Glycine riboswitch aptamer: a 111-nucleotide RNA from Limnohabitans radicicola. The organism belongs to Limnohabitans, within Bacteria.
RNA sequence: GUCACACACUCUGAAGAGCGAUCGGGAUUCGUCAUCCCGGUCCACCGCAGGAGCAAGCCCACGUCACUGACACAGGGGCGAAUCUCUCAGGUCUCAAACAGAGGGGGUCAU
Numbered sequence: 001g002u003c004a005c006a007c008a009c010u011c012u013g014a015a016g017a018g019c020g021a022u023c024g025g026g027a028u029u030c031g032u033c034a035u036c037c038c039g040g041u042c043c044a045c046c047g048c049a050g051g052a053g054c055a056a057g058c059c060c061a062c063g064u065c066a067c068u069g070a071c072a073c074a075g076g077g078g079c080g081a082a083u084c085u086c087u088c089a090g091g092u093c094u095c096a097a098a099c100a101g102a103g104g105g106g107g108u109c110a111u
Stems, first nucleotide, its partner, number of pairs: 007105001009103005020042008044092003047088001051086003057079004